Source information
This 388-nucleotide RNA sequence from Salibacterium qingdaonense belongs to the Rfam family "Bacterial RNase P class B". The match comes from Rfam's covariance-model search (316 bits). Rfam describes the family as follows. Ribonuclease P (RNase P) is a ubiquitous endoribonuclease, found in archaea, bacteria and eukarya as well as chloroplasts and mitochondria. Its best characterised activity is the generation of mature 5'-ends of tRNAs by cleaving the 5'-leader elements of precursor-tRNAs. Cellular RNase Ps are ribonucleoproteins. RNA from bacterial RNase Ps retains its catalytic activity in the absence of the protein subunit, i.e. it is a ribozyme. Isolated eukaryotic and archaeal RNase P RNA has not been shown to retain its catalytic function, but is still essential for the catalytic activity of the holoenzyme. Although the archaeal and eukaryotic holoenzyme s have a much greater protein content than the bacterial ones, the RNA cores from all the three lineages are homologous -- helices corresponding to P1, P2, P3, P4, and P10/11 are common to all cellular RNase P RNAs. Yet, there is considerable sequence variation, particularly among the eukaryotic RNAs.
[Rfam]
RNA sequence: ACAUUCGGGCAGUCGCUGCGCUGACAUGCGUAGAGGAAAGUCCAUGCUCGCACAGCCUGAGACGGCUGUAGUGUUCGUGCCCGGCGAAAAAAUAAGCCGGGACGGUCCGGCGUUCCGGACCGAUGGCGGGGAACCGGCCUGUGUCCUGACUGGAUAUGGCCGUAUUACCUUUAAAGUGCCACAGUGACGUAGUCUGUUUGGAAACAAACAGAGUGGAACGCGGUAAACCCCUCGAGCGGGAAACCCAAAUAUUGGUAGGGGAACCUUUCAGAAGGAAUGCAACGGAACGAAAGGGCAGGGAUAACCUCCCUGCAGAUAGAUGACUGCCACCGGCGUGCGAGGUGAACAACCGCAUGAAGCACAACGGGACAGAACAUGGCUUAUAUGA
Numbered sequence: 001a002c003a004u005u006c007g008g009g010c011a012g013u014c015g016c017u018g019c020g021c022u023g024a025c026a027u028g029c030g031u032a033g034a035g036g037a038a039a040g041u042c043c044a045u046g047c048u049c050g051c052a053c054a055g056c057c058u059g060a061g062a063c064g065g066c067u068g069u070a071g072u073g074u075u076c077g078u079g080c081c082c083g084g085c086g087a088a089a090a091a092a093u094a095a096g097c098c099g100g101g102a103c104g105g106u107c108c109g110g111c112g113u114u115c116c117g118g119a120c121c122g123a124u125g126g127c128g129g130g131g132a133a134c135c136g137g138c139c140u141g142u143g144u145c146c147u148g149a150c151u152g153g154a155u156a157u158g159g160c161c162g163u164a165u166u167a168c169c170u171u172u173a174a175a176g177u178g179c180c181a182c183a184g185u186g187a188c189g190u191a192g193u194c195u196g197u198u199u200g201g202a203a204a205c206a207a208a209c210a211g212a213g214u215g216g217a218a219c220g221c222g223g224u225a226a227a228c229c230c231c232u233c234g235a236g237c238g239g240g241a242a243a244c245c246c247a248a249a250u251a252u253u254g255g256u257a258g259g260g261g262a263a264c265c266u267u268u269c270a271g272a273a274g275g276a277a278u279g280c281a282a283c284g285g286a287a288c289g290a291a292a293g294g295g296c297a298g299g300g301a302u303a304a305c306c307u308c309c310c311u312g313c314a315g316a317u318a319g320a321u322g323a324c325u326g327c328c329a330c331c332g333g334c335g336u337g338c339g340a341g342g343u344g345a346a347c348a349a350c351c352g353c354a355u356g357a358a359g360c361a362c363a364a365c366g367g368g369a370c371a372g373a374a375c376a377u378g379g380c381u382u383a384u385a386u387g388a
Stems, first nucleotide, its partner, number of pairs: 004388002007384001008328007016033006038382003042379005047240005052069006075235003079231001080101006102124001103122008125230002128170003136161004143155003176228002178224003193212008244260003264294006295313006330367003335362004
NCBI's taxonomy places the organism under Bacteria, Bacillati, Bacilli, Bacillaceae, Salibacterium.